[Rfam]
RT-2 RNA: a 239-nucleotide RNA sequence.
RNA sequence: AUUGGGUGAAAUCAGUACCUUUUGCAGAGGGAGGGCUUGUACCCUGCCUAUGGGCUAAAACUUCCGGGCACAUCGUCUGAAAUGCGCCCACCCCGAAAGGGGCACUCCGAUGUAAUCAGCCGGACGCUUCUUGCAUGGUGAGUGAUGUACGGUAACUCAUUUCAUGGCUGGUAUUACUACGCAGUUAGAACCCGUACCCCACAAUCAUACUGUACGGAGGGAAAUCUUUUCAUGACAAG
Numbered sequence: 001a002u003u004g005g006g007u008g009a010a011a012u013c014a015g016u017a018c019c020u021u022u023u024g025c026a027g028a029g030g031g032a033g034g035g036c037u038u039g040u041a042c043c044c045u046g047c048c049u050a051u052g053g054g055c056u057a058a059a060a061c062u063u064c065c066g067g068g069c070a071c072a073u074c075g076u077c078u079g080a081a082a083u084g085c086g087c088c089c090a091c092c093c094c095g096a097a098a099g100g101g102g103c104a105c106u107c108c109g110a111u112g113u114a115a116u117c118a119g120c121c122g123g124a125c126g127c128u129u130c131u132u133g134c135a136u137g138g139u140g141a142g143u144g145a146u147g148u149a150c151g152g153u154a155a156c157u158c159a160u161u162u163c164a165u166g167g168c169u170g171g172u173a174u175u176a177c178u179a180c181g182c183a184g185u186u187a188g189a190a191c192c193c194g195u196a197c198c199c200c201a202c203a204a205u206c207a208u209a210c211u212g213u214a215c216g217g218a219g220g221g222a223a224a225u226c227u228u229u230u231c232a233u234g235a236c237a238a239g
Base pairs, nucleotide, nucleotide: 004043005042019029020028074086075085076084105219106218107217108216109215111214112177113176114175115174116173117170118169119168120167121166126134127133137161138160139159140158141157142156143155181213182212183211184210185209188199